[Rfam]
RNA sequence: UGCCUUUACGUGUUACCCAUUCAUUGCUGUAUCCAGUGAAUGUGGUGUCAAAUAAGGCAUACAGUAACUCUUGGAUCGGCCUUCGUAAGGUUCUCCUCCGUGUGACCUUUUAUGAAGUUCUAUGCCAAGUACAGCA
Numbered sequence: 001u002g003c004c005u006u007u008a009c010g011u012g013u014u015a016c017c018c019a020u021u022c023a024u025u026g027c028u029g030u031a032u033c034c035a036g037u038g039a040a041u042g043u044g045g046u047g048u049c050a051a052a053u054a055a056g057g058c059a060u061a062c063a064g065u066a067a068c069u070c071u072u073g074g075a076u077c078g079g080c081c082u083u084c085g086u087a088a089g090g091u092u093c094u095c096c097u098c099c100g101u102g103u104g105a106c107c108u109u110u111u112a113u114g115a116a117g118u119u120c121u122a123u124g125c126c127a128a129g130u131a132c133a134g135c136a
Stems, first nucleotide, its partner, number of pairs: 002058005011050002014047004018042008070129004075123002078120002084117001086115001088113001090110001094105002

Rfam assigns this 136-nucleotide RNA sequence from Parambassis ranga to the family "Small nucleolar RNA SNORA13". The family is grouped with related families in Rfam's "SNORA13 clan". About the family: ACA13 is a member of the H/ACA class of snoRNA that guide the sites of modification of uridines to pseudouridines. Pairs were carried over by alignment from the consensus structure, which was predicted with CMfinder. Gene Ontology terms of the family: nucleolus and RNA processing.